A member of the RNA family "Listeria sRNA rli31" from Listeria innocua, 116 nucleotides long. It is annotated as a small RNA. The source organism's lineage runs through Bacteria, Bacillati, Bacillota, Bacilli and Listeria. On this family, see Toledo-Arana et al., Nature 2009: "The Listeria transcriptional landscape from saprophytism to virulence".
RNA sequence: UAGAGAUUGUCAUUUGAAAUAAGCUAGUUAAGAAUAAAUCACUUCCCCCAUAGAAAUGUUCUUAACAGCUUAUUGCAAAUAAACACUCCUUUUAAGAUAGUUGUAGCACAGAAUUU
Number, nucleotide and partner (000 for none) at each position: 001u000002a000003g088004a087005g086006a000007u000008u085009g084010u083011c000012a080013u079014u078015u077016g076017a000018a074019a073020u072021a071022a070023g069024c068025u000026a000027g066028u065029u064030a063031a062032g061033a060034a059035u058036a057037a000038a000039u054040c053041a000042c000043u000044u000045c000046c000047c000048c000049c000050a000051u000052a000053g040054a039055a000056a000057u036058g035059u034060u033061c032062u031063u030064a029065a028066c027067a000068g024069c023070u022071u021072a020073u019074u018075g000076c016077a015078a014079a013080u012081a000082a000083a010084c009085a008086c005087u004088c003089c000090u000091u000092u000093u000094a000095a000096g000097a000098u000099a000100g000101u000102u000103g000104u000105a000106g000107c000108a000109c000110a000111g000112a000113a000114u000115u000116u000